Rfam assigns this 202-nucleotide RNA from Medicago truncatula to the family "MIR2619 microRNA precursor family".
RNA sequence: AAACAUCCCCUUAUGUAUUGGAUCUUUGACAGUUUUGGCUCCCAAGACCACUUUUGACUUAGUCUUCGCUGACGUGGCACCCAUAUCCCUUAAGUGAGAUGUCACGUGUAAUUAGUUAGGGGGUCCCACGUUAGCGAAGACUAAGUCAAAAGUGGUCUUGGGGGCCAAAAAUGCCAAAGAUCCAAUACAUAGGGGGUUGUUU
Numbered sequence: 001a002a003a004c005a006u007c008c009c010c011u012u013a014u015g016u017a018u019u020g021g022a023u024c025u026u027u028g029a030c031a032g033u034u035u036u037g038g039c040u041c042c043c044a045a046g047a048c049c050a051c052u053u054u055u056g057a058c059u060u061a062g063u064c065u066u067c068g069c070u071g072a073c074g075u076g077g078c079a080c081c082c083a084u085a086u087c088c089c090u091u092a093a094g095u096g097a098g099a100u101g102u103c104a105c106g107u108g109u110a111a112u113u114a115g116u117u118a119g120g121g122g123g124u125c126c127c128a129c130g131u132u133a134g135c136g137a138a139g140a141c142u143a144a145g146u147c148a149a150a151a152g153u154g155g156u157c158u159u160g161g162g163g164g165c166c167a168a169a170a171a172u173g174c175c176a177a178a179g180a181u182c183c184a185a186u187a188c189a190u191a192g193g194g195g196g197u198u199g200u201u202u
Base pairs, nucleotide, nucleotide: 001202002201004199005198007196008195012191013190014189015188016187017186018185019184020183021182022181023180024179025178026177027176028175030173031172033170034169035168036167037166038165039164040163041162042161043160044159045158072131073130075128076127077126079124080123081122082121